[Rfam]
RNA: DUF805b RNA
RNA sequence: AACGGGGAAACCGAAAACCGAGAAAAGAGUAGGUG
Numbered sequence: 001a002a003c004g005g006g007g008a009a010a011c012c013g014a015a016a017a018c019c020g021a022g023a024a025a026a027g028a029g030u031a032g033g034u035g
Stems, first nucleotide, its partner, number of pairs: 003020003010034003